Description: The family of this 144-nucleotide RNA from Brachybacterium sp. UMB0905 is "Actinobacteria sRNA Ms_IGR-5".
[Rfam]
RNA sequence: GCAGUGGAAAGGAGGUGAUCCGAGAAGUGAUUGCUGAUCGGACCUGUGAGGUGGUCGCCGCCUGAGGCGACCACCGCAGAACCCCCGGGGGUCGGCCUGGUCCGGCCGACCAGCGCGCCGCGCGACCCGGGGGUUCUGUUCUGC
Numbered sequence: 001g002c003a004g005u006g007g008a009a010a011g012g013a014g015g016u017g018a019u020c021c022g023a024g025a026a027g028u029g030a031u032u033g034c035u036g037a038u039c040g041g042a043c044c045u046g047u048g049a050g051g052u053g054g055u056c057g058c059c060g061c062c063u064g065a066g067g068c069g070a071c072c073a074c075c076g077c078a079g080a081a082c083c084c085c086c087g088g089g090g091g092u093c094g095g096c097c098u099g100g101u102c103c104g105g106c107c108g109a110c111c112a113g114c115g116c117g118c119c120g121c122g123c124g125a126c127c128c129g130g131g132g133g134u135u136c137u138g139u140u141c142u143g144c
Stems, first nucleotide, its partner, number of pairs: 014059006060068003077138013091110006
Lineage of the source: Bacteria > Bacillati > Micrococcales > Dermabacteraceae > Brachybacterium.